Shown here is an 85-nucleotide sequence from Zooshikella ganghwensis, a member of the family "t44 RNA". The family's RNA type in Rfam is small RNA. This family consists of a number of bacterial RNA genes of between 135 and 170 bases in length. The t44 gene has been identified in several species of enteric bacteria but homologs have also been identified in Pseudomonas and Coxiella species. The t44 gene is found between the map and rpsB genes in all species in the full alignment apart from Shigella flexneri. The function of this RNA is unknown. The match comes from Rfam's covariance-model search (72 bits).
RNA sequence: GGUAAGUAAUUUUAACCCCACACAUGUGCCGUCACAUAGACUUGGGUGCCGAAAGGUUGGUCUAUGGGGUACAUGGAGGCUUAAC
Number, nucleotide and partner (000 for none) at each position: 001g000002g000003u000004a000005a000006g000007u000008a000009a000010u000011u000012u000013u000014a000015a000016c000017c000018c000019c000020a000021c000022a000023c075024a074025u073026g072027u071028g070029c069030c068031g000032u000033c000034a000035c066036a065037u064038a063039g062040a061041c060042u059043u000044g000045g000046g000047u000048g057049c056050c055051g000052a000053a000054a000055g050056g049057u048058u000059g042060g041061u040062c039063u038064a037065u036066g035067g000068g030069g029070u028071a027072c026073a025074u024075g023076g000077a000078g000079g000080c000081u000082u000083a000084a000085c000